[Rfam]
RNA sequence: GAGUGUUAAAGCUCUCUUAGAAUCUGUCUAGCAGGUUUUUCAGUCUCCACCAGAAGAACCCCC
Numbered sequence: 001g002a003g004u005g006u007u008a009a010a011g012c013u014c015u016c017u018u019a020g021a022a023u024c025u026g027u028c029u030a031g032c033a034g035g036u037u038u039u040u041c042a043g044u045c046u047c048c049a050c051c052a053g054a055a056g057a058a059c060c061c062c063c
Base pairs, nucleotide, nucleotide: 034060035059036058037057038056039055040054041053043050044049

The record is a 63-nucleotide sequence from Otolemur garnettii, which matches "U7 small nuclear RNA" in Rfam. The organism belongs to Otolemur, within Eukaryota. A search with the family's covariance model found it, with a score of 54 bits.